The family of this 131-nucleotide sequence from Colletotrichum tofieldiae is "U4 spliceosomal RNA". It scores 100 bits against the family's covariance model. The literature on the family includes a 2018 paper in Cell Res by Zhan et al., "Structures of the human pre-catalytic spliceosome and its precursor spliceosome".
[Rfam]
RNA sequence: AUCCGAGUGCAAGGGCAUUACGCGUAUCAGUGAGGAUUCGUCCGAGAUCGUGUUUUUGCUAGUUGAAAACUAUAACUAUGACCACUCCUGGUUGGUUUCGACUGGCCAGGGAAUUUUUGAACACCCAAGAU
Numbered sequence: 001a002u003c004c005g006a007g008u009g010c011a012a013g014g015g016c017a018u019u020a021c022g023c024g025u026a027u028c029a030g031u032g033a034g035g036a037u038u039c040g041u042c043c044g045a046g047a048u049c050g051u052g053u054u055u056u057u058g059c060u061a062g063u064u065g066a067a068a069a070c071u072a073u074a075a076c077u078a079u080g081a082c083c084a085c086u087c088c089u090g091g092u093u094g095g096u097u098u099c100g101a102c103u104g105g106c107c108a109g110g111g112a113a114u115u116u117u118u119g120a121a122c123a124c125c126c127a128a129g130a131u
Base pairs, nucleotide, nucleotide: 020053021052022051023050024049026048027047028046034043035042036041086111087110088109089108090107091106092105093104094103095102096101